[Rfam]
Shown here is a 77-nucleotide RNA from Dyella sp. AD56, a member of the family "Xanthomonas sRNA sX9". A search with the family's covariance model found it, with a score of 75 bits. Rfam classes the family as a small RNA. NCBI's taxonomy places the organism under Bacteria, Pseudomonadota, Lysobacterales, Rhodanobacteraceae, Dyella.
RNA sequence: AUGUACGUAAAAGUACACUCCGGUUCCUGCGCGCCGCCCGCACCCACCUAGCGGCCGCUCGCUACGUUUUGUUAGCG
Numbered sequence: 001a002u003g004u005a006c007g008u009a010a011a012a013g014u015a016c017a018c019u020c021c022g023g024u025u026c027c028u029g030c031g032c033g034c035c036g037c038c039c040g041c042a043c044c045c046a047c048c049u050a051g052c053g054g055c056c057g058c059u060c061g062c063u064a065c066g067u068u069u070u071g072u073u074a075g076c077g
Stems, first nucleotide, its partner, number of pairs: 002017005021036004026031001048075007
Dot-bracket structure: .(((((......)))))...((((.(....).))))...........(((((((..............)))))))..